mir-1781 microRNA precursor family: an 85-nucleotide sequence from Gallus gallus. Rfam's curators put it in the seed alignment. Rfam links the family to the GO terms miRNA-mediated post-transcriptional gene silencing and RISC complex. The source organism's lineage runs through Eukaryota, Bilateria, Sarcopterygii, Dipnotetrapodomorpha and Gallus. The base pairs follow the family's consensus structure, which was predicted with RNAalifold.

[Rfam]
RNA sequence: CAAGGAGCGUGUUUAACAGCUGAGUGAUUUAAAGCAAUCAAAUUCCUUUGGCUUUAAAUCAUGCAGCUGUUGAACAAGCUCUUGC
Numbered sequence: 001c002a003a004g005g006a007g008c009g010u011g012u013u014u015a016a017c018a019g020c021u022g023a024g025u026g027a028u029u030u031a032a033a034g035c036a037a038u039c040a041a042a043u044u045c046c047u048u049u050g051g052c053u054u055u056a057a058a059u060c061a062u063g064c065a066g067c068u069g070u071u072g073a074a075c076a077a078g079c080u081c082u083u084g085c
Base pairs, nucleotide, nucleotide: 003083004082005081006080007079008078010076011075012074013073014072015071016070017069018068019067020066021065022064024062025061026060027059028058029057030056031055032054033053034052035051